[Rfam]
RNA sequence: AAGCAUGGCACACUGGACGGGCAUCCUGCUUCUUUUUAAAGAGCAUGGAUUUAUCCGUAACAUGCCACAUUAAUGAAAUGAGUUUUCAGGGCUGCCAACCUCUUGGUUAAGGUUCUGCACGGUAUAUUUCUCCUACAAUA
Numbered sequence: 001a002a003g004c005a006u007g008g009c010a011c012a013c014u015g016g017a018c019g020g021g022c023a024u025c026c027u028g029c030u031u032c033u034u035u036u037u038a039a040a041g042a043g044c045a046u047g048g049a050u051u052u053a054u055c056c057g058u059a060a061c062a063u064g065c066c067a068c069a070u071u072a073a074u075g076a077a078a079u080g081a082g083u084u085u086u087c088a089g090g091g092c093u094g095c096c097a098a099c100c101u102c103u104u105g106g107u108u109a110a111g112g113u114u115c116u117g118c119a120c121g122g123u124a125u126a127u128u129u130c131u132c133c134u135a136c137a138a139u140a
Base pairs, nucleotide, nucleotide: 003065004064005063006062007061022047023046024045026043027042080132081131082130091120095117097114098113099112100111101110
The record is a 140-nucleotide RNA from Aotus nancymaae, which matches "Small nucleolar RNA U109" in Rfam. It scores 60 bits against the family's covariance model. A reference for the family is Gu et al. (2005), "A novel experimental approach for systematic identification of box H/ACA snoRNAs from eukaryotes", Nucleic Acids Res.